[Rfam]
RNA sequence: AACGGCGAGUAUGAUGAUUCAAUUAGAUGUGCGAAUGGAGAUUCUCUCCAUCCUGAGCUCAAAAACUUUUAUUUGGCAAUAUUAAUCUGACUUCGCCGUC
Numbered sequence: 001a002a003c004g005g006c007g008a009g010u011a012u013g014a015u016g017a018u019u020c021a022a023u024u025a026g027a028u029g030u031g032c033g034a035a036u037g038g039a040g041a042u043u044c045u046c047u048c049c050a051u052c053c054u055g056a057g058c059u060c061a062a063a064a065a066c067u068u069u070u071a072u073u074u075g076g077c078a079a080u081a082u083u084a085a086u087c088u089g090a091c092u093u094c095g096c097c098g099u100c
Base pairs, nucleotide, nucleotide: 002099003098004097005096006095007094008093009091
RNA: Small nucleolar RNA Z266